[Rfam]
RNA sequence: GGGAAGAUGUUCGUUCCUUCCCGAAGUCGCAGUAAUGGUUUGCAACAGGUUCUCCUGGCGCGUCCCAAUAGAAGCAGCAGGUGUCUCCUCCCUCUCCUGCCGCGAUGCGCCCUCCUGGCCUCGCUCGUCCUGACCGACCGGCGAGGCUCUUU
Numbered sequence: 001g002g003g004a005a006g007a008u009g010u011u012c013g014u015u016c017c018u019u020c021c022c023g024a025a026g027u028c029g030c031a032g033u034a035a036u037g038g039u040u041u042g043c044a045a046c047a048g049g050u051u052c053u054c055c056u057g058g059c060g061c062g063u064c065c066c067a068a069u070a071g072a073a074g075c076a077g078c079a080g081g082u083g084u085c086u087c088c089u090c091c092c093u094c095u096c097c098u099g100c101c102g103c104g105a106u107g108c109g110c111c112c113u114c115c116u117g118g119c120c121u122c123g124c125u126c127g128u129c130c131u132g133a134c135c136g137a138c139c140g141g142c143g144a145g146g147c148u149c150u151u152u
Base pairs, nucleotide, nucleotide: 057111058110059109060108061107062106063105064104077100078099079098080097081096083094118147119146120145121144122143123142124141125140128137129136